[Rfam]
Shown here is a 76-nucleotide RNA, a member of the family "Fluoride riboswitch aptamer (crcB RNA motif)".
RNA sequence: UUAUAUGUGGGCGAUGAGGUUCGCCUUGGUAUUAGCCUAAAUUGUCUCGAUCGAGACUGAUAACUUCUAUUUUCAA
Numbered sequence: 001u002u003a004u005a006u007g008u009g010g011g012c013g014a015u016g017a018g019g020u021u022c023g024c025c026u027u028g029g030u031a032u033u034a035g036c037c038u039a040a041a042u043u044g045u046c047u048c049g050a051u052c053g054a055g056a057c058u059g060a061u062a063a064c065u066u067c068u069a070u071u072u073u074c075a076a
Base pairs, nucleotide, nucleotide: 010025011024012023013022016067017066018065019064020063021062044057045056046055047054

Gene Ontology terms of the family: response to fluoride and positive regulation of gene expression.